[Rfam]
RNA sequence: GGUCUUGAGUGCCAGCACACAGCCCCGGCUAGCUGGCCGGCAACCCUCCUCUGCGGCGGGGUGCCCCGGGUGACGACCAGGCGCUGGCUACCUGCCAGUGCAAGCGCUCACC
Numbered sequence: 001g002g003u004c005u006u007g008a009g010u011g012c013c014a015g016c017a018c019a020c021a022g023c024c025c026c027g028g029c030u031a032g033c034u035g036g037c038c039g040g041c042a043a044c045c046c047u048c049c050u051c052u053g054c055g056g057c058g059g060g061g062u063g064c065c066c067c068g069g070g071u072g073a074c075g076a077c078c079a080g081g082c083g084c085u086g087g088c089u090a091c092c093u094g095c096c097a098g099u100g101c102a103a104g105c106g107c108u109c110a111c112c
Stems, first nucleotide, its partner, number of pairs: 001078004009038001011037006021030002039065003044061003048056002081101008
Record summary:
Rfam assigns this 112-nucleotide RNA from Serinibacter salmoneus to the family "SAM (S-adenosyl methionine) riboswitch aptamer". The organism belongs to Serinibacter, within Bacteria. About the family: SAM-IV is a mRNA element that regulates gene expression via direct sensing of S-adenosylmethionine (SAM or AdoMet).